This 252-nucleotide sequence from Aspergillus cristatus belongs to the Rfam family "Small nucleolar RNA snR191". The literature on the family includes a 2003 paper in RNA by Badis et al., "A snoRNA that guides the two most conserved pseudouridine modifications within rRNA confers a growth advantage in yeast". Its Rfam clan is "SNORA74 clan". It is annotated as an H/ACA-box small nucleolar RNA.
[Rfam]
RNA sequence: UGCCAUCGCUAAGUCAGGACUUCUUCCAGCGACAAUUAUUUGUCGCGCUUUCGCACAAUGGAGGCUUGUCUGUUACAGCUUUGGCAGAUCGACACUGGUCCGCGCCGAAUCUCUUUCUGAGGCUAGGCUGAUUGGCUUUCGUUUUGAAAACUGGUCGUUAAGGAGCGGGUAGUGCUUUGUUUUUGAGUUGAGAUCUGCUUCUGCCUUUGGCGGUUUACCGUAGCAGAUCUCUUAGUAACAUCUCACACAUUC
Numbered sequence: 001u002g003c004c005a006u007c008g009c010u011a012a013g014u015c016a017g018g019a020c021u022u023c024u025u026c027c028a029g030c031g032a033c034a035a036u037u038a039u040u041u042g043u044c045g046c047g048c049u050u051u052c053g054c055a056c057a058a059u060g061g062a063g064g065c066u067u068g069u070c071u072g073u074u075a076c077a078g079c080u081u082u083g084g085c086a087g088a089u090c091g092a093c094a095c096u097g098g099u100c101c102g103c104g105c106c107g108a109a110u111c112u113c114u115u116u117c118u119g120a121g122g123c124u125a126g127g128c129u130g131a132u133u134g135g136c137u138u139u140c141g142u143u144u145u146g147a148a149a150a151c152u153g154g155u156c157g158u159u160a161a162g163g164a165g166c167g168g169g170u171a172g173u174g175c176u177u178u179g180u181u182u183u184u185g186a187g188u189u190g191a192g193a194u195c196u197g198c199u200u201c202u203g204c205c206u207u208u209g210g211c212g213g214u215u216u217a218c219c220g221u222a223g224c225a226g227a228u229c230u231c232u233u234a235g236u237a238a239c240a241u242c243u244c245a246c247a248c249a250u251u252c
Stems, first nucleotide, its partner, number of pairs: 003084003017071004023064005030045005095172003099168002104128003108124001110122004129157003135151001137149005174246001179241002182238001190231004195226004201213004